[Rfam]
RNA sequence: AUCUCUCGAAGACGAUGAUUGCUUAGAAGCGCAUCAUCUUCACCUCCCUGUUGGACUAAGGCCGAGCUUAUUGCUCGGCCCUUUUU
Dot-bracket structure: .......(((((.((((..............)))).)))))..................((((((((.....))))))))......
Rfam assigns this 86-nucleotide RNA from Shimia marina to the family "Singlet oxygen resistance RNA X".
Gene Ontology term of the family: response to photooxidative stress.
For this family Rfam cites "Regulation of a polyamine transporter by the conserved 3' UTR-derived sRNA SorX confers resistance to singlet oxygen and organic hydroperoxides in Rhodobacter sphaeroides" (Peng et al., RNA Biol, 2016).
Taxonomically the source falls in Shimia (Bacteria, Pseudomonadota, Rhodobacterales, Roseobacteraceae).
From the family's description: SorX (RSs2461)like SorY is a singlet oxygen induced sRNA that counteracts oxidative stress by targeting mRNA for a transporter in Rhodobacter.